[Rfam]
RNA sequence: AGAGUAGGUGUGGCGGUUGCGGGUCAGUUAAACCUGACCUGAGGAAAGUCCGGGCUCCCUAAAGACCAGACUUGCUGGGUAACGCCCAGUGCGGGUGACCGUGAGGAAAGUGCCACAGAAACAUACCGCCAAUGGAAUGGGGAUCGGGAGCGGGGGGCAGGGGUUCGGUGAGGAGCAAUCCACACAGUCCCAAUCUCCAACUCUUGGCUUCCAAUCACAGGUAAGGGUGCAAGGGUGCGGUAAGAGCGCACCAGCAGGGUCGAGAGGCCCUGGCUCGGUAAACCCCGGUUGGGAGCAAGGUCGAGGGGCUAUGGUUGGUCUUUUUCCAGCUCCGCUUUUGGCGUACCGCUAGAGGCGUUCGGUAACGAGCGUCCCAGAUAGAUAACUGCCUUCCCUGGGUCUGCUGCGGCAGGCCCCUGGGGAUAACAGAACCCGGCUUACGGCUUGCUCUUCCA
Numbered sequence: 001a002g003a004g005u006a007g008g009u010g011u012g013g014c015g016g017u018u019g020c021g022g023g024u025c026a027g028u029u030a031a032a033c034c035u036g037a038c039c040u041g042a043g044g045a046a047a048g049u050c051c052g053g054g055c056u057c058c059c060u061a062a063a064g065a066c067c068a069g070a071c072u073u074g075c076u077g078g079g080u081a082a083c084g085c086c087c088a089g090u091g092c093g094g095g096u097g098a099c100c101g102u103g104a105g106g107a108a109a110g111u112g113c114c115a116c117a118g119a120a121a122c123a124u125a126c127c128g129c130c131a132a133u134g135g136a137a138u139g140g141g142g143a144u145c146g147g148g149a150g151c152g153g154g155g156g157g158c159a160g161g162g163g164u165u166c167g168g169u170g171a172g173g174a175g176c177a178a179u180c181c182a183c184a185c186a187g188u189c190c191c192a193a194u195c196u197c198c199a200a201c202u203c204u205u206g207g208c209u210u211c212c213a214a215u216c217a218c219a220g221g222u223a224a225g226g227g228u229g230c231a232a233g234g235g236u237g238c239g240g241u242a243a244g245a246g247c248g249c250a251c252c253a254g255c256a257g258g259g260u261c262g263a264g265a266g267g268c269c270c271u272g273g274c275u276c277g278g279u280a281a282a283c284c285c286c287g288g289u290u291g292g293g294a295g296c297a298a299g300g301u302c303g304a305g306g307g308g309c310u311a312u313g314g315u316u317g318g319u320c321u322u323u324u325u326c327c328a329g330c331u332c333c334g335c336u337u338u339u340g341g342c343g344u345a346c347c348g349c350u351a352g353a354g355g356c357g358u359u360c361g362g363u364a365a366c367g368a369g370c371g372u373c374c375c376a377g378a379u380a381g382a383u384a385a386c387u388g389c390c391u392u393c394c395c396u397g398g399g400u401c402u403g404c405u406g407c408g409g410c411a412g413g414c415c416c417c418u419g420g421g422g423a424u425a426a427c428a429g430a431a432c433c434c435g436g437c438u439u440a441c442g443g444c445u446u447g448c449u450c451u452u453c454c455a
Stems, first nucleotide, its partner, number of pairs: 001451009010441001012390007020041008046439003050436005055295004064324002069290003073287002075089005090104001091102004105285002110283002112279003126226002128222003133217003234252006254274001255272007299347003306337004315329004354373008